Nucleotides: 077
Base pairs, nucleotide, nucleotide: 014063015062016061017060019058020057021056022055023054024053025052026051027050028049030048031047032046033045
Number, partner (000 for none) and nucleotide at each position: 001000c002000g003000c004000c005000g006000c007000c008000c009000u010000c011000g012000g013000c014063u015062u016061c017060u018000u019058u020057a021056c022055a023054g024053u025052g026051c027050u028049g029000u030048c031047u032046u033045g034000u035000g036000g037000c038000a039000u040000a041000g042000g043000u044000u045033c046032a047031a048030g049028c050027a051026g052025c053024a054023u055022u056021g057020u058019a059000c060017a061016g062015g063014g064000c065000u066000a067000u068000g069000a070000g071000g072000g073000c074000g075000c076000c077000g